[Rfam]
RNA: c-di-GMP-I riboswitch aptamer
Organism: Neobacillus rhizophilus
RNA sequence: AUCCGAUAAUAGCAAACCUGGGGAAACCCAGCGACGCAAAGCUAUAGGGGCUAAGGAUCCGAAGGGAUUACGCCAGCCAGUUGCCGAA
Numbered sequence: 001a002u003c004c005g006a007u008a009a010u011a012g013c014a015a016a017c018c019u020g021g022g023g024a025a026a027c028c029c030a031g032c033g034a035c036g037c038a039a040a041g042c043u044a045u046a047g048g049g050g051c052u053a054a055g056g057a058u059c060c061g062a063a064g065g066g067a068u069u070a071c072g073c074c075a076g077c078c079a080g081u082u083g084c085c086g087a088a
Base pairs, nucleotide, nucleotide: 012037013036018031019030020029021028022027040082041081042080043079047078048077049074050073051072057068058067059066060065